[Rfam]
RNA sequence: AGAGUGUGAUGAUAAGCAGAAAGUAACAUUCUUUGUCUUGUCUAGCUCUGUGUGUUCCCUGCGAGAUAACUCGCGGGG
Numbered sequence: 001a002g003a004g005u006g007u008g009a010u011g012a013u014a015a016g017c018a019g020a021a022a023g024u025a026a027c028a029u030u031c032u033u034u035g036u037c038u039u040g041u042c043u044a045g046c047u048c049u050g051u052g053u054g055u056u057c058c059c060u061g062c063g064a065g066a067u068a069a070c071u072c073g074c075g076g077g078g
Stems, first nucleotide, its partner, number of pairs: 002048004011042003019034003057078009
Dot-bracket structure: .((((.....(((.....(((..........))).....)))..))))........(((((((((....)))))))))